[Rfam]
RNA sequence: UGAGGAAGCCUGUGAUGUCUUUGCUGUGGUGUCUGAACCUGGCUGAAAGACUCUUGUGAAGACUCUUUUUUGGCUCUGAGGCUUCCAGAGCA
Numbered sequence: 001u002g003a004g005g006a007a008g009c010c011u012g013u014g015a016u017g018u019c020u021u022u023g024c025u026g027u028g029g030u031g032u033c034u035g036a037a038c039c040u041g042g043c044u045g046a047a048a049g050a051c052u053c054u055u056g057u058g059a060a061g062a063c064u065c066u067u068u069u070u071u072g073g074c075u076c077u078g079a080g081g082c083u084u085c086c087a088g089a090g091c092a
Base pairs, nucleotide, nucleotide: 004086005085006084007083008082009081010080

Small nucleolar RNA SNORD91 family: a 92-nucleotide sequence from Phainopepla nitens. A search with the family's covariance model found it, with a score of 60 bits. For this family Rfam cites "RNomics: an experimental approach that identifies 201 candidates for novel, small, non-messenger RNAs in mouse" (Huttenhofer et al., EMBO J, 2001).